[Rfam]
RNA: Small nucleolar RNA Z199
Organism: Lupinus angustifolius
RNA sequence: AUAUCAUGUGAUGAGGAUAAAAUAACUGCAACAAUAUGAUUGGAAUUUUAUUCCAAUGAUUCUUAUAUACUUAACUCUCUGAUGAUC
Numbered sequence: 001a002u003a004u005c006a007u008g009u010g011a012u013g014a015g016g017a018u019a020a021a022a023u024a025a026c027u028g029c030a031a032c033a034a035u036a037u038g039a040u041u042g043g044a045a046u047u048u049u050a051u052u053c054c055a056a057u058g059a060u061u062c063u064u065a066u067a068u069a070c071u072u073a074a075c076u077c078u079c080u081g082a083u084g085a086u087c
Stems, first nucleotide, its partner, number of pairs: 001086001004085003041055005